[Rfam]
RNA sequence: CUGUCUGGCAUUCUAGGCAGAGUGCUGUGGGACCGCCCUCGUGUCUGUGGUGGUGGGAUCCCGUGGCCGUGUUUUCCUGGUGGCCUGGCC
Numbered sequence: 001c002u003g004u005c006u007g008g009c010a011u012u013c014u015a016g017g018c019a020g021a022g023u024g025c026u027g028u029g030g031g032a033c034c035g036c037c038c039u040c041g042u043g044u045c046u047g048u049g050g051u052g053g054u055g056g057g058a059u060c061c062c063g064u065g066g067c068c069g070u071g072u073u074u075u076c077c078u079g080g081u082g083g084c085c086u087g088g089c090c
Base pairs, nucleotide, nucleotide: 005088006087007086008085011083012082013080014079015078016077017076019073020072022070023069024067025066026065027064028063029062030061031060032059033053034052035051036050037049038047
Dot-bracket structure: ....((((..(((((((.((.(((((((((((((((((........).))))).....))))))))).)).))..))))).)).))))..